RNA sequence: AGAGGUCACAAGUUUGAGGCUAUAAUAGAAGCACUCACAGUGCAGCCCUGUCAGAGUCCAAUGAAUCUGAGAAUUCUGCU
Dot-bracket structure: ...............[.[[[[..(.((((((((.......)))]]]]]...((((.((....)).))))....))))).)

A member of the RNA family "Mammalian CPEB3 ribozyme" from Alligator mississippiensis, 80 nucleotides long. The organism belongs to Alligator, within Eukaryota. The base pairs follow the family's consensus structure, which is taken from published work. Its family is annotated with RNA nuclease activity in the Gene Ontology.